Shown here is a 106-nucleotide RNA sequence from Actinoplanes sp. OR16, a member of the family "TPP riboswitch aptamer (THI element)". From the family's description: Vitamin B(1) in its active form thiamin pyrophosphate (TPP) is an essential coenzyme that is synthesised by coupling of pyrimidine and thiazole moieties in bacteria. It scores 66 bits against the family's covariance model. NCBI's taxonomy places the organism under Bacteria, Actinomycetes, Micromonosporales, Micromonosporaceae, Actinoplanes.
RNA sequence: CUAAUCCGACAGGGGAGCGCACAGCGCUGAGAGUGCGGUCGAAAGCCGCAGACCCUAGUACCUGAUCUGGGUAAUGCCAGCGCAGGAAGCUCGGUCUCUUCUCUAU
Numbered sequence: 001c002u003a004a005u006c007c008g009a010c011a012g013g014g015g016a017g018c019g020c021a022c023a024g025c026g027c028u029g030a031g032a033g034u035g036c037g038g039u040c041g042a043a044a045g046c047c048g049c050a051g052a053c054c055c056u057a058g059u060a061c062c063u064g065a066u067c068u069g070g071g072u073a074a075u076g077c078c079a080g081c082g083c084a085g086g087a088a089g090c091u092c093g094g095u096c097u098c099u100u101c102u103c104u105a106u
Base pairs, nucleotide, nucleotide: 006094007093008092009091011056012055013054014053017027018026019025020024034050035049036048037047038046061086062085063084064083067080068079069078070077